RNA sequence: CGGGGUAACCCAGGCUAGGGAACUCGGCAAAUUAGCCCCGUAACUUCGGGAGAAGGGGUGCCUGCGGUCUUGGGGCAUACCCCUGGGACCGCAGGUCGCAGUGACAAGGGGGACCCGACUGUUUAAUAAAAACAUAGGUCCCCGCGAGCCCGAAAGGGUGAGUACGGGGGCUGAAUCCUGGCCACUGGCGGUACGUGAAACCCGGGUACAACCGGGCGAAGCGCCGCCGAAGGCCGGGAGUAACUCUGACUCUCUUAAGGUAGCCAAAUGCCUUGCCGGGUAAGUUCCGGCGCGCAUGAAUGGAUCAACGAGGUCCCCACUGUCCCAGCCUGGGACCCGCUGAACCCGCAACCAGGUGCAGAGUCCUGGGA
Numbered sequence: 001c002g003g004g005g006u007a008a009c010c011c012a013g014g015c016u017a018g019g020g021a022a023c024u025c026g027g028c029a030a031a032u033u034a035g036c037c038c039c040g041u042a043a044c045u046u047c048g049g050g051a052g053a054a055g056g057g058g059u060g061c062c063u064g065c066g067g068u069c070u071u072g073g074g075g076c077a078u079a080c081c082c083c084u085g086g087g088a089c090c091g092c093a094g095g096u097c098g099c100a101g102u103g104a105c106a107a108g109g110g111g112g113a114c115c116c117g118a119c120u121g122u123u124u125a126a127u128a129a130a131a132a133c134a135u136a137g138g139u140c141c142c143c144g145c146g147a148g149c150c151c152g153a154a155a156g157g158g159u160g161a162g163u164a165c166g167g168g169g170g171c172u173g174a175a176u177c178c179u180g181g182c183c184a185c186u187g188g189c190g191g192u193a194c195g196u197g198a199a200a201c202c203c204g205g206g207u208a209c210a211a212c213c214g215g216g217c218g219a220a221g222c223g224c225c226g227c228c229g230a231a232g233g234c235c236g237g238g239a240g241u242a243a244c245u246c247u248g249a250c251u252c253u254c255u256u257a258a259g260g261u262a263g264c265c266a267a268a269u270g271c272c273u274u275g276c277c278g279g280g281u282a283a284g285u286u287c288c289g290g291c292g293c294g295c296a297u298g299a300a301u302g303g304a305u306c307a308a309c310g311a312g313g314u315c316c317c318c319a320c321u322g323u324c325c326c327a328g329c330c331u332g333g334g335a336c337c338c339g340c341u342g343a344a345c346c347c348g349c350a351a352c353c354a355g356g357u358g359c360a361g362a363g364u365c366c367u368g369g370g371a
Stems, first nucleotide, its partner, number of pairs: 001339004009334008018325003035059005044049001060096016097101001109318007116310002120134003137172008145162001148159004175305004180235003185232002187228005194223003201216005236254006255259001275291006352369005
Annotation
Rfam assigns this 371-nucleotide part of an RNA from Thermofilum pendens to the family "Archaeal large subunit ribosomal RNA". Taxonomically the source falls in Thermofilum pendens (Archaea, Thermoproteati, Thermofilaceae, Thermofilum).